[Rfam]
Rfam assigns this 76-nucleotide sequence from Striga hermonthica to the family "Small nucleolar RNA Z105". The family has 11 seed sequences and 621 matches in Rfam 15.1. The base pairs follow the family's consensus structure, which was predicted with CMfinder. NCBI's taxonomy places the organism under Eukaryota, Mesangiospermae, Pentapetalae, Buchnereae, Striga.
RNA sequence: UGGGCAUAAUGAGGAUCAAAGUUGUUCUGAAUUAUUGUUGAUUGAGUUAAUACAACAAACCUCCUACUCAUUCUGA
Numbered sequence: 001u002g003g004g005c006a007u008a009a010u011g012a013g014g015a016u017c018a019a020a021g022u023u024g025u026u027c028u029g030a031a032u033u034a035u036u037g038u039u040g041a042u043u044g045a046g047u048u049a050a051u052a053c054a055a056c057a058a059a060c061c062u063c064c065u066a067c068u069c070a071u072u073c074u075g076a
Stems, first nucleotide, its partner, number of pairs: 006071002009068001028052002